[Rfam]
RNA sequence: CUAAAUGCUUUCUAGGGUUCCGCAGCAAAUUGUUGGACUGGUCCUAGAGAAAACUCAUAGAUCUUUCUAUGUCACGGAAGGAUAAGAGCCUGGAAUAU
Dot-bracket structure: ......(.((((..((...((((((((...)))))..).)).))....)))).).(((((......))))).(.....(((.......))).).....
Guanidine-I riboswitch aptamer: a 98-nucleotide RNA sequence from Sporosarcina sp. P19. The source organism's lineage runs through Bacteria, Bacilli, Caryophanales, Caryophanaceae and Sporosarcina. Pairs were carried over by alignment from the consensus structure. About the family: This family represents a conserved RNA structure found upstream of the ykkC and yxkD genes in Bacillus subtilis and related genes in other bacteria. The match comes from Rfam's covariance-model search (69 bits).